Small nucleolar RNA SNORA23: a 181-nucleotide RNA sequence from Muntiacus reevesi. From the family's description: The members of this family belong to the H/ACA class of snoRNAs which are thought to guide the sites of modification of uridines to pseudouridines. This family includes human snoRNA ACA23 (SNORA23) and mouse snoMBI-1. Rfam links the family to the GO terms nucleolus and RNA processing. Rfam classes the family as an H/ACA-box small nucleolar RNA.

RNA sequence: GCUGUAAUGUGUGCACGGCUUUCAUCUGUGUCUGAUAGCAGUGUCUGUGUGCUUUGCAUUCAGCUCUUGCUAUCCGCACAAACAUCAUGCAGCCAAGAGUAAGUUGGGAUCAUAGUCCUGGUCUAGUGUUGUCUCUUUGGACCUGCCCGCCACUGGCCAGCCUCCAAAUUCCCACACACAA
Numbered sequence: 001g002c003u004g005u006a007a008u009g010u011g012u013g014c015a016c017g018g019c020u021u022u023c024a025u026c027u028g029u030g031u032c033u034g035a036u037a038g039c040a041g042u043g044u045c046u047g048u049g050u051g052c053u054u055u056g057c058a059u060u061c062a063g064c065u066c067u068u069g070c071u072a073u074c075c076g077c078a079c080a081a082a083c084a085u086c087a088u089g090c091a092g093c094c095a096a097g098a099g100u101a102a103g104u105u106g107g108g109a110u111c112a113u114a115g116u117c118c119u120g121g122u123c124u125a126g127u128g129u130u131g132u133c134u135c136u137u138u139g140g141a142c143c144u145g146c147c148c149g150c151c152a153c154u155g156g157c158c159a160g161c162c163u164c165c166a167a168a169u170u171c172c173c174a175c176a177c178a179c180a181a
Base pairs, nucleotide, nucleotide: 013090014089015088029080030079031078033076034075036072037071038070039069040068041067043065045063046062047061050058051057052056105174106173107172108171109170118160119159120158121157122156123155125154126153127152128151130145131144134141135140